[Rfam]
RNA: mir-128 microRNA precursor family
RNA sequence: GAGAGACGGGAGGCGGGGCCGGGACGCUGUCUGAGAGGCCUCUAUGAAUCUCACAGUGAACCGGUCUCUUUUCCAGCCCUCUC
Number, nucleotide and partner (000 for none) at each position: 001g000002a000003g000004a000005g000006a000007c076008g000009g074010g073011a000012g000013g000014c000015g068016g067017g066018g065019c064020c063021g062022g000023g000024a000025c058026g057027c056028u055029g054030u053031c000032u000033g052034a051035g050036a000037g000038g000039c000040c000041u000042c000043u000044a000045u000046g000047a000048a000049u000050c035051u034052c033053a030054c029055a028056g027057u026058g025059a000060a000061c000062c021063g020064g019065u018066c017067u016068c015069u000070u000071u000072u000073c010074c009075a000076g007077c000078c000079c000080u000081c000082u000083c000